[Rfam]
RNA sequence: GCCGCGCCUAUCUGACGGCUGAUCCCCGAGAGAGAAAACCGGGAAACCUUGCCCGGCUGGCGCGGCAUUCUGAACCAAGGG
Numbered sequence: 001g002c003c004g005c006g007c008c009u010a011u012c013u014g015a016c017g018g019c020u021g022a023u024c025c026c027c028g029a030g031a032g033a034g035a036a037a038a039c040c041g042g043g044a045a046a047c048c049u050u051g052c053c054c055g056g057c058u059g060g061c062g063c064g065g066c067a068u069u070c071u072g073a074a075c076c077a078a079g080g081g
Base pairs, nucleotide, nucleotide: 001066002065003064004063005062006061007060008059011033012032013031039056040055041054042053043052047080048079049078050077051076
This 81-nucleotide RNA belongs to the Rfam family "int-alpA RNA".
The sequence is in the family's curated seed alignment.
The family's RNA type in Rfam is small RNA.
Acidobacteria (1 example), Planctomycetes (1 example), Proteobacteria.
The family's consensus secondary structure is taken from published work.